[Rfam]
Nucleotides: 378
Base pairs, nucleotide, nucleotide: 019103020102022100024098025097026096037092040089041088042052043051044050045049060081061080063078064077067074143360144359145358146357147356148355149354165188166187167186169184170183204223205222206221207220208219209218210217211216256271257270258269259268260267
Number, partner (000 for none) and nucleotide at each position: 001000u002000g003000c004000g005000c006000u007000g008000u009000g010000a011000a012000c013000a014000a015000a016000c017000g018000c019103g020102g021000c022100c023000u024098g025097g026096c027000g028000g029000g030000u031000c032000g033000c034000a035000g036000c037092g038000c039000c040089g041088c042052g043051c044050g045049g046000c047000g048000a049045c050044c051043g052042c053000g054000a055000g056000g057000c058000g059000a060081c061080c062000g063078g064077g065000a066000g067074c068000c069000g070000c071000u072000g073000g074067g075000a076000c077064c078063c079000a080061g081060g082000c083000u084000g085000c086000g087000c088041g089040c090000c091000c092037c093000u094000c095000g096026g097025c098024c099000u100022g101000c102020c103019c104000g105000g106000g107000a108000g109000c110000c111000g112000c113000g114000c115000c116000a117000g118000u119000c120000g121000g122000a123000g124000u125000c126000c127000c128000g129000g130000g131000c132000c133000g134000a135000g136000c137000g138000g139000g140000g141000c142000u143360u144359g145358c146357c147356u148355c149354c150000c151000u152000c153000u154000c155000a156000g157000c158000g159000u160000u161000c162000c163000u164000c165188u166187g167186u168000g169184c170183g171000c172000a173000g174000u175000g176000c177000a178000g179000c180000c181000a182000g183170c184169g185000g186167g187166c188165a189000u190000g191000a192000c193000c194000g195000a196000u197000c198000c199000a200000c201000c202000a203000g204223g205222g206221g207220c208219g209218c210217c211216g212000c213000c214000g215000c216211c217210g218209g219208c220207g221206c222205c223204u224000g225000c226000a227000a228000g229000c230000c231000g232000c233000g234000g235000g236000u237000g238000a239000a240000g241000a242000a243000g244000a245000a246000a247000g248000u249000c250000c251000g252000g253000c254000c255000c256271c257270g258269c259268u260267c261000u262000u263000c264000u265000c266000a267260g268259a269258g270257c271256g272000a273000g274000a275000a276000g277000g278000u279000a280000g281000g282000g283000a284000g285000c286000a287000g288000c289000a290000g291000c292000a293000g294000g295000g296000a297000g298000u299000u300000g301000a302000c303000u304000a305000g306000a307000a308000g309000u310000a311000a312000g313000a314000a315000a316000g317000u318000g319000a320000c321000c322000c323000g324000u325000a326000g327000c328000a329000a330000g331000a332000a333000c334000g335000u336000g337000a338000c339000c340000g341000g342000g343000a344000c345000c346000c347000a348000g349000g350000u351000a352000g353000a354149g355148g356147a357146g358145g359144u360143g361000a362000c363000c364000a365000a366000g367000a368000u369000c370000g371000a372000g373000g374000a375000g376000g377000c378000g